[Rfam]
RNA sequence: AAUAUUUAGAGCGAUGGAGUUCGCUUAACUGCUACAUUGUAGCUGAUAACUCCUGUUGAAGU
Numbered sequence: 001a002a003u004a005u006u007u008a009g010a011g012c013g014a015u016g017g018a019g020u021u022c023g024c025u026u027a028a029c030u031g032c033u034a035c036a037u038u039g040u041a042g043c044u045g046a047u048a049a050c051u052c053c054u055g056u057u058g059a060a061g062u
Base pairs, nucleotide, nucleotide: 010025011024012023013022016053017052018051019050020049021048031043032042033041034040
About this RNA
Rfam assigns this 62-nucleotide RNA from Candidatus Brocadia sinica to the family "Fluoride riboswitch aptamer (crcB RNA motif)". The organism belongs to Candidatus Brocadia sinica, within Bacteria. Pairs were carried over by alignment from the consensus structure, which is taken from published work.